[Rfam]
RNA sequence: GAGUCUAACAUGUACGCGAGUCAUUGGGACUUGUCGCGAGACCUAAAGGCGUAAUGAAAGUGAAGGUCGGCCCUGGCCGUCGACCGAGGGAGGAUGGGCCGCGUCGCGAUGCGGCCUCGCACUCCCGGGGCGUCUCGUUCUCAACGCGAGAAGAGGCGCACCCAGAGCGUACACGUUGGGACCCGAAAGAUGGUGAACUAUGCCUGGUCAGGACGAAGUCAGGGGAAACCCUGAUGGAGGUCCGUAGCGAUUCUGACGUGCAAAUCGAUCGUCGGAACUGGGUAUAGGGGCGAAAGACUAAUCGAACCAUCUAGUAGCUGGUU
Numbered sequence: 001g002a003g004u005c006u007a008a009c010a011u012g013u014a015c016g017c018g019a020g021u022c023a024u025u026g027g028g029a030c031u032u033g034u035c036g037c038g039a040g041a042c043c044u045a046a047a048g049g050c051g052u053a054a055u056g057a058a059a060g061u062g063a064a065g066g067u068c069g070g071c072c073c074u075g076g077c078c079g080u081c082g083a084c085c086g087a088g089g090g091a092g093g094a095u096g097g098g099c100c101g102c103g104u105c106g107c108g109a110u111g112c113g114g115c116c117u118c119g120c121a122c123u124c125c126c127g128g129g130g131c132g133u134c135u136c137g138u139u140c141u142c143a144a145c146g147c148g149a150g151a152a153g154a155g156g157c158g159c160a161c162c163c164a165g166a167g168c169g170u171a172c173a174c175g176u177u178g179g180g181a182c183c184c185g186a187a188a189g190a191u192g193g194u195g196a197a198c199u200a201u202g203c204c205u206g207g208u209c210a211g212g213a214c215g216a217a218g219u220c221a222g223g224g225g226a227a228a229c230c231c232u233g234a235u236g237g238a239g240g241u242c243c244g245u246a247g248c249g250a251u252u253c254u255g256a257c258g259u260g261c262a263a264a265u266c267g268a269u270c271g272u273c274g275g276a277a278c279u280g281g282g283u284a285u286a287g288g289g290g291c292g293a294a295a296g297a298c299u300a301a302u303c304g305a306a307c308c309a310u311c312u313a314g315u316a317g318c319u320g321g322u323u
Stems, first nucleotide, its partner, number of pairs: 005179005011173007020050003025045004030040003054061002088126005096117007128162002130159003133155001135153001139149002182321002185318001189311006198287011209275001211243004218235007247272004252268002255266002289299002
Eukaryotic large subunit ribosomal RNA: a 323-nucleotide part of an RNA from Camponotus floridanus. Its Rfam clan is "LSU clan". Lineage of the source: Eukaryota > Dicondylia > Eumetabola > Apocrita > Camponotus.